c-di-AMP riboswitch aptamer (ydaO/yuaA leader): a 156-nucleotide RNA sequence from Yinghuangia soli. The match comes from Rfam's covariance-model search (70 bits). Its family is annotated with regulation of gene expression and cyclic-di-AMP binding in the Gene Ontology.
[Rfam]
RNA sequence: CGGGGGCUCCCGCCGAAUCCGGCGCGGCCCACGGGGGGCCGGUCCGGAACCGGGGACCCGGUUCCCUGGGGUGAAUCGGUGCGGCAUGCCGCACUGUAGGGCUUGCUUCCAGCCCGAACCCGUCAGCUCACCCGGUAGGCGGCCGGAGGAAGAACG
Dot-bracket structure: ..........((((...(((((.....................)))))((((((....((......))(((.....((((((........))))))..((((.........))))...))).........)))))).))))...............
Numbered sequence: 001c002g003g004g005g006g007c008u009c010c011c012g013c014c015g016a017a018u019c020c021g022g023c024g025c026g027g028c029c030c031a032c033g034g035g036g037g038g039c040c041g042g043u044c045c046g047g048a049a050c051c052g053g054g055g056a057c058c059c060g061g062u063u064c065c066c067u068g069g070g071g072u073g074a075a076u077c078g079g080u081g082c083g084g085c086a087u088g089c090c091g092c093a094c095u096g097u098a099g100g101g102c103u104u105g106c107u108u109c110c111a112g113c114c115c116g117a118a119c120c121c122g123u124c125a126g127c128u129c130a131c132c133c134g135g136u137a138g139g140c141g142g143c144c145g146g147a148g149g150a151a152g153a154a155c156g
Stems, first nucleotide, its partner, number of pairs: 011141004018048005049136006059068002069121003077096006099115004